The family of this 81-nucleotide RNA sequence from Chanos chanos is "mir-219 microRNA precursor family". It scores 67 bits against the family's covariance model. For this family Rfam cites "Vertebrate microRNA genes" (Lim et al., Science, 2003). Pairs were carried over by alignment from the consensus structure, which was predicted with RNAalifold. Rfam links the family to the GO terms miRNA-mediated post-transcriptional gene silencing and RISC complex.
[Rfam]
RNA sequence: CACGCAGCUGAUUGUCCAAACGCAAUUCUUGUGAGAUGUCACGCGAUUAAUCAAGAAUUGUGCGUGGACAUCUGUUGCUGG
Numbered sequence: 001c002a003c004g005c006a007g008c009u010g011a012u013u014g015u016c017c018a019a020a021c022g023c024a025a026u027u028c029u030u031g032u033g034a035g036a037u038g039u040c041a042c043g044c045g046a047u048u049a050a051u052c053a054a055g056a057a058u059u060g061u062g063c064g065u066g067g068a069c070a071u072c073u074g075u076u077g078c079u080g081g
Stems, first nucleotide, its partner, number of pairs: 004078004010072003014069005021062011